This 92-nucleotide RNA from Ensifer sp. M14 belongs to the Rfam family "Rhizobiales sRNA Atu_Ti1". It is annotated as a small RNA. The match comes from Rfam's covariance-model search (87 bits). Lineage of the source: Bacteria > Pseudomonadati > Pseudomonadota > Rhizobiaceae > Ensifer.
[Rfam]
RNA sequence: GUCCAGUUUGCGGCGGACCAAAGCCAAAAUCCCGAAAGGAUAAUGGCAACAGCCGGCCACGCACGGGUUACGAGGCCCAUGAGGCCGGCUGU
Numbered sequence: 001g002u003c004c005a006g007u008u009u010g011c012g013g014c015g016g017a018c019c020a021a022a023g024c025c026a027a028a029a030u031c032c033c034g035a036a037a038g039g040a041u042a043a044u045g046g047c048a049a050c051a052g053c054c055g056g057c058c059a060c061g062c063a064c065g066g067g068u069u070a071c072g073a074g075g076c077c078c079a080u081g082a083g084g085c086c087g088g089c090u091g092u
Stems, first nucleotide, its partner, number of pairs: 001018004023047004031039002049092010062081002065078004